[Rfam]
RNA sequence: AGAGGUCCCAAGCUGGAGGCCACAGCAGAAGAGCUCAUGGCACGGCCAUGCCCGAUUCCAAUGAAUCUGUGAAUUUUGCU
Numbered sequence: 001a002g003a004g005g006u007c008c009c010a011a012g013c014u015g016g017a018g019g020c021c022a023c024a025g026c027a028g029a030a031g032a033g034c035u036c037a038u039g040g041c042a043c044g045g046c047c048a049u050g051c052c053c054g055a056u057u058c059c060a061a062u063g064a065a066u067c068u069g070u071g072a073a074u075u076u077u078g079c080u
Stems, first nucleotide, its partner, number of pairs: 018047004024080007031043001033041001052069001054067005
RNA: Mammalian CPEB3 ribozyme